[Rfam]
Overview:
The family of this 76-nucleotide sequence from Myotis brandtii is "mir-9223 microRNA precursor family".
RNA sequence: GGCGGUUCUCCAGUGACGCACCCCAGAAUUGGACUCCCUCCUCUCUGGUUCUGGGGUGUGUCACUUGAGAACUGCC
Numbered sequence: 001g002g003c004g005g006u007u008c009u010c011c012a013g014u015g016a017c018g019c020a021c022c023c024c025a026g027a028a029u030u031g032g033a034c035u036c037c038c039u040c041c042u043c044u045c046u047g048g049u050u051c052u053g054g055g056g057u058g059u060g061u062c063a064c065u066u067g068a069g070a071a072c073u074g075c076c
Stems, first nucleotide, its partner, number of pairs: 002075002005072006012065006019058005025052009
The family's consensus secondary structure was predicted with RNAalifold.